[Rfam]
RNA sequence: UUUUGAUAAAGCAAUAAUCGGCAACUCAGUGAAGAAGGUUUAGUUAGCCUUGCUGAGAACGGGUUAAAUGCAAAGUUUUGGUUAUAUGGGAUACUGUAUGACUGGGGCUUCCUGUUGAUAGUGAUUGAUAUAGGAUAGAGACAGAAGUCUCAAAUGCAAGAUUCGGUUGCCGGUCUAUAUGAGCAAAACGUCUAAUCAACGAGUCGGAGCGAUAAUUGAGGAGAUUCACAGUCAAAUGGGAAUCGAUGCGGCUCUUAAGUUCUAUAUGGGGACAUAUAUGAUUACUGAGAGUAAUUCCAAAACAAGCUCUUGCCGAUGACCUGGAGAAAUCCGGCUAUAAGACAAAACAGAUUAGGGCGAGUACCACAAGGCAAAUUUUGAUACGUUUGAUAGUAAUAAUCAAAUUUAUUGAAUUCUAACAAGAAAACUGAAUAACGUGGGAAAGUUGGGAGUAUCAAUCUCCUCAGAGUGUCAGGUGGGGUAUACCACCGGGGCAUACAGGUUAGGGCGACGGCCCGAAACCUCAGGUAUGUUUCCUCUGUGACAGAACAUUGCGUAAUAUAGGCUUUAGGUAGGGCGAAAGUCCGCCGAUUGUUGUAUUUUUAU
Numbered sequence: 001u002u003u004u005g006a007u008a009a010a011g012c013a014a015u016a017a018u019c020g021g022c023a024a025c026u027c028a029g030u031g032a033a034g035a036a037g038g039u040u041u042a043g044u045u046a047g048c049c050u051u052g053c054u055g056a057g058a059a060c061g062g063g064u065u066a067a068a069u070g071c072a073a074a075g076u077u078u079u080g081g082u083u084a085u086a087u088g089g090g091a092u093a094c095u096g097u098a099u100g101a102c103u104g105g106g107g108c109u110u111c112c113u114g115u116u117g118a119u120a121g122u123g124a125u126u127g128a129u130a131u132a133g134g135a136u137a138g139a140g141a142c143a144g145a146a147g148u149c150u151c152a153a154a155u156g157c158a159a160g161a162u163u164c165g166g167u168u169g170c171c172g173g174u175c176u177a178u179a180u181g182a183g184c185a186a187a188a189c190g191u192c193u194a195a196u197c198a199a200c201g202a203g204u205c206g207g208a209g210c211g212a213u214a215a216u217u218g219a220g221g222a223g224a225u226u227c228a229c230a231g232u233c234a235a236a237u238g239g240g241a242a243u244c245g246a247u248g249c250g251g252c253u254c255u256u257a258a259g260u261u262c263u264a265u266a267u268g269g270g271g272a273c274a275u276a277u278a279u280g281a282u283u284a285c286u287g288a289g290a291g292u293a294a295u296u297c298c299a300a301a302a303c304a305a306g307c308u309c310u311u312g313c314c315g316a317u318g319a320c321c322u323g324g325a326g327a328a329a330u331c332c333g334g335c336u337a338u339a340a341g342a343c344a345a346a347a348c349a350g351a352u353u354a355g356g357g358c359g360a361g362u363a364c365c366a367c368a369a370g371g372c373a374a375a376u377u378u379u380g381a382u383a384c385g386u387u388u389g390a391u392a393g394u395a396a397u398a399a400u401c402a403a404a405u406u407u408a409u410u411g412a413a414u415u416c417u418a419a420c421a422a423g424a425a426a427a428c429u430g431a432a433u434a435a436c437g438u439g440g441g442a443a444a445g446u447u448g449g450g451a452g453u454a455u456c457a458a459u460c461u462c463c464u465c466a467g468a469g470u471g472u473c474a475g476g477u478g479g480g481g482u483a484u485a486c487c488a489c490c491g492g493g494g495c496a497u498a499c500a501g502g503u504u505a506g507g508g509c510g511a512c513g514g515c516c517c518g519a520a521a522c523c524u525c526a527g528g529u530a531u532g533u534u535u536c537c538u539c540u541g542u543g544a545c546a547g548a549a550c551a552u553u554g555c556g557u558a559a560u561a562u563a564g565g566c567u568u569u570a571g572g573u574a575g576g577g578c579g580a581a582a583g584u585c586c587g588c589c590g591a592u593u594g595u596u597g598u599a600u601u602u603u604u605a606u
Stems, first nucleotide, its partner, number of pairs: 008602003014596001017593001021589001025057005036050005060166001061164005074109006081102009110135006120125001138151005173567001175565002186553001193354004203343003206310005223244004251292006259282003263278003269298004311373004321334005358445001364440004428527003449464002452461001466540003469490001475489001491537004500529001501524002503521001504519001506517004575586004